FMN riboswitch aptamer (RFN element): a 117-nucleotide sequence from Anaeromicropila populeti. From the family's description: The RFN element is a highly conserved domain that is found frequently in the 5'-untranslated regions of prokaryotic mRNAs that encode for flavin mononucleotide (FMN) biosynthesis and transport proteins. This element is a metabolite-dependent riboswitch that directly binds FMN in the absence of proteins. In Bacillus subtilis, the riboswitch most likely controls gene expression by causing premature transcription termination within the 5' untranslated region of the ribDEAHT operon and precluding access to the ribosome-binding site of ypaA mRNA.The FMN riboswitch structure, reported in present an FMN-bound six-stem junction, adopts a butterfly-like scaffold, stapled together by opposingly directed but nearly identically folded peripheral domains.
[Rfam]
Nucleotides: 117
Base pairs, nucleotide, nucleotide: 005113006112007111008110009109010108017029018028019027031097032096033087034086035048036047037046038045043085044084051063052062053061067083068082069081070080071079089100090099091098
Number, partner (000 for none) and nucleotide at each position: 001000a002000g003000a004000a005113g006112u007111c008110u009109u010108c011000g012000g013000g014000g015000c016000a017029g018028g019027g020000u021000g022000u023000a024000a025000c026000u027019c028018c029017c030000g031097a032096c033087c034086g035048g036047c037046g038045g039000u040000a041000u042000a043085g044084u045038c046037c047036g048035c049000g050000a051063a052062c053061c054000a055000u056000u057000a058000a059000g060000u061053g062052g063051u064000u065000g066000a067083u068082u069081u070080g071079g072000u073000g074000c075000a076000a077000u078000u079071c080070c081069a082068a083067a084044a085043c086034c087033g088000a089100c090099a091098g092000u093000a094000a095000a096032g097031u098091c099090u100089g101000g102000a103000u104000g105000a106000g107000a108010g109009a110008a111007g112006a113005u114000a115000a116000c117000g